[Rfam]
Guanidine-II riboswitch aptamer (mini-ykkC): a 46-nucleotide sequence from Kluyvera genomosp. 3.
The match comes from Rfam's covariance-model search (33 bits).
The base pairs follow the family's consensus structure, which is taken from published work.
The source organism's lineage runs through Bacteria, Pseudomonadati, Pseudomonadota, Gammaproteobacteria and Kluyvera.
RNA sequence: CUUGCGGGACGACCUGUAAGCGUAUCUCUCAUCCGGGGACGGCCCA
Numbered sequence: 001c002u003u004g005c006g007g008g009a010c011g012a013c014c015u016g017u018a019a020g021c022g023u024a025u026c027u028c029u030c031a032u033c034c035g036g037g038g039a040c041g042g043c044c045c046a
Stems, first nucleotide, its partner, number of pairs: 001020008036045003